RNA: MIR1437 microRNA precursor family
Organism: Oryza sativa
RNA sequence: GCGCGCGGGGAGGGAGGGAACGGUGCCUAGUGCGGCACCGGAGCUCGCCAGCACGCAGGAGUGAGGUGAGGAGGACGGCGGCCAGGGCGCGGAGAGCUUGCCGGCGCUCCGCCACCGCCGCUACCUCCUUCCGCGUGCUGGCGAGCUCCGGCGCCGCACUAGGCACUGUUUCCUCCCUCCCCACGCGC
Number, nucleotide and partner (000 for none) at each position: 001g188002c187003g186004c185005g184006c000007g182008g181009g180010g179011a178012g177013g176014g175015a174016g173017g172018g171019a170020a169021c168022g167023g166024u165025g164026c163027c162028u161029a160030g159031u158032g157033c156034g155035g154036c153037a000038c151039c150040g149041g148042a147043g146044c145045u144046c143047g142048c141049c140050a139051g138052c137053a136054c135055g134056c133057a000058g131059g130060a129061g128062u000063g127064a126065g125066g124067u123068g121069a000070g119071g118072a000073g116074g115075a000076c000077g113078g112079c111080g110081g109082c000083c000084a108085g107086g000087g105088c104089g000090c103091g102092g101093a000094g000095a000096g000097c000098u000099u000100g000101c092102c091103g090104g088105c087106g000107c085108u084109c081110c080111g079112c078113c077114a000115c074116c073117g000118c071119c070120g000121c068122u000123a067124c066125c065126u064127c063128c061129u060130u059131c058132c000133g056134c055135g054136u053137g052138c051139u050140g049141g048142c047143g046144a045145g044146c043147u042148c041149c040150g039151g038152c000153g036154c035155c034156g033157c032158a031159c030160u029161a028162g027163g026164c025165a024166c023167u022168g021169u020170u019171u018172c017173c016174u015175c014176c013177c012178u011179c010180c009181c008182c007183a000184c005185g004186c003187g002188c001